A member of the RNA family "Phenylalanine leader peptide" from Vibrio proteolyticus, 119 nucleotides long. The match comes from Rfam's covariance-model search (76 bits). Rfam 15.1 lists 379 matches to the family in 290 species. The family's consensus secondary structure was predicted with CMfinder. On this family, see Gurvich et al., Nucleic Acids Res 2010: "Two groups of phenylalanine biosynthetic operon leader peptides genes: a high level of apparently incidental frameshifting in decoding Escherichia coli pheL".

RNA sequence: CCUGACCUCACUGUUCUUUUUUGACUUCUUUUUUCUCCACUGAAGCUGGAGGCCUGCUCGUUCGCGGAAGAUAAGUCAAAAACGAACAGAAAGCCUCCCAAACGGGAGGCUUUUUUAUA
Numbered sequence: 001c002c003u004g005a006c007c008u009c010a011c012u013g014u015u016c017u018u019u020u021u022u023g024a025c026u027u028c029u030u031u032u033u034u035c036u037c038c039a040c041u042g043a044a045g046c047u048g049g050a051g052g053c054c055u056g057c058u059c060g061u062u063c064g065c066g067g068a069a070g071a072u073a074a075g076u077c078a079a080a081a082a083c084g085a086a087c088a089g090a091a092a093g094c095c096u097c098c099c100a101a102a103c104g105g106g107a108g109g110c111u112u113u114u115u116u117a118u119a
Base pairs, nucleotide, nucleotide: 013087014086015085016084018082019081020080021079022078023077024076025075026074027073029071030070031069036050037049038048039047051063052062054060090113091112092111093110094109095108096107097106098105099104